[Rfam]
The family of this 80-nucleotide sequence from Pomatostomus ruficeps is "Small nucleolar RNA SNORD103/SNORD85".
NCBI's taxonomy places the organism under Eukaryota, Bilateria, Gnathostomata, Passeriformes, Pomatostomus.
On this family, see Huttenhofer et al., EMBO J 2001: "RNomics: an experimental approach that identifies 201 candidates for novel, small, non-messenger RNAs in mouse".
The match comes from Rfam's covariance-model search (49 bits).
The pairing is the family consensus, mapped onto this sequence.
RNA sequence: CCUGGCAGUGAUGCCACUCUUGCCCUCACCGAGAGCUCGGCUCCGUGACGAGCCUCUCCGUGCGCUGAAGCUGAGCCAGA
Numbered sequence: 001c002c003u004g005g006c007a008g009u010g011a012u013g014c015c016a017c018u019c020u021u022g023c024c025c026u027c028a029c030c031g032a033g034a035g036c037u038c039g040g041c042u043c044c045g046u047g048a049c050g051a052g053c054c055u056c057u058c059c060g061u062g063c064g065c066u067g068a069a070g071c072u073g074a075g076c077c078a079g080a
Stems, first nucleotide, its partner, number of pairs: 002079005